A member of the RNA family "U4 spliceosomal RNA" from Nyctereutes procyonoides, 130 nucleotides long.
Nucleotides: 130
Stems, first nucleotide, its partner, number of pairs: 020052005026047003034042002082109003085105001087101001089099003123130002
Number, partner (000 for none) and nucleotide at each position: 001000a002000g003000c004000u005000u006000u007000g008000u009000g010000c011000a012000g013000u014000g015000g016000c017000a018000g019000u020052a021051u022050c023049g024048u025000a026047g027046c028045c029000a030000g031000u032000g033000a034042g035041g036000u037000u038000u039000a040000u041035c042034c043000a044000a045028g046027g047026c048024g049023c050022g051021a052020u053000u054000a055000u056000u057000g058000c059000c060000a061000a062000a063000a064000u065000c066000u067000c068000u069000u070000a071000a072000a073000c074000u075000a076000u077000g078000u079000a080000u081000u082109u083108c084107u085105g086000u087101u088000u089099u090098g091097a092000c093000u094000u095000c096000u097091u098090u099089a100000c101087a102000u103000c104000u105085u106000c107084a108083g109082g110000u111000a112000u113000u114000c115000u116000u117000u118000g119000a120000a121000u122000a123130u124129a125000c126000u127000a128000g129124u130123a
It is annotated as a spliceosomal small nuclear RNA. The organism belongs to Nyctereutes, within Eukaryota. The family's consensus secondary structure is taken from published work.